[Rfam]
Shown here is a 199-nucleotide RNA sequence from Theropithecus gelada, a member of the family "Mason-Pfizer monkey virus packaging signal". Lineage of the source: Eukaryota > Euteleostomi > Simiiformes > Cercopithecidae > Theropithecus. The family's consensus secondary structure was predicted with PFOLD. Gene Ontology term of the family: viral genome packaging.
RNA sequence: GGAGUAAAACUCUUCCGAUCUCCGCGGGAACCUGCCGCGUCAGAAUCAAAGGUAAGUGGCGCGUCCAAAAUGGGACAAGAAUUAAGUCAGCAUCAGAUCUAUGUAGGACAAUUAAAAGAGGCUUUAAAGAUACGAGGAGUAAAGGUUAAAGGUAAUGAUUUGUUUAAGUUUUUUGAUUUUGUAAAAGACACUUGCCCUU
Numbered sequence: 001g002g003a004g005u006a007a008a009a010c011u012c013u014u015c016c017g018a019u020c021u022c023c024g025c026g027g028g029a030a031c032c033u034g035c036c037g038c039g040u041c042a043g044a045a046u047c048a049a050a051g052g053u054a055a056g057u058g059g060c061g062c063g064u065c066c067a068a069a070a071u072g073g074g075a076c077a078a079g080a081a082u083u084a085a086g087u088c089a090g091c092a093u094c095a096g097a098u099c100u101a102u103g104u105a106g107g108a109c110a111a112u113u114a115a116a117a118g119a120g121g122c123u124u125u126a127a128a129g130a131u132a133c134g135a136g137g138a139g140u141a142a143a144g145g146u147u148a149a150a151g152g153u154a155a156u157g158a159u160u161u162g163u164u165u166a167a168g169u170u171u172u173u174u175g176a177u178u179u180u181g182u183a184a185a186a187g188a189c190a191c192u193u194g195c196c197c198u199u
Stems, first nucleotide, its partner, number of pairs: 009053003013049002019045001020043002023039005061076001064074004083126003086122003133175008143161006184199002187196001189194001